[Rfam]
RNA: Small nucleolar RNA SNORD113/SNORD114 family
RNA sequence: UGGAUCAAUCAUGACUACUGGUAUUGGAUGGGUCUUCGUCAGUGAAUGCCUAUCUGGAACUCUGAGGUCCAU
Number, nucleotide and partner (000 for none) at each position: 001u000002g070003g069004a068005u067006c066007a000008a000009u000010c000011a000012u000013g000014a000015c000016u000017a000018c000019u000020g000021g000022u000023a000024u000025u000026g000027g000028a000029u000030g000031g000032g000033u000034c000035u000036u000037c000038g000039u000040c000041a000042g000043u000044g000045a000046a000047u000048g000049c000050c000051u000052a000053u000054c000055u000056g000057g000058a000059a000060c000061u000062c000063u000064g000065a000066g006067g005068u004069c003070c002071a000072u000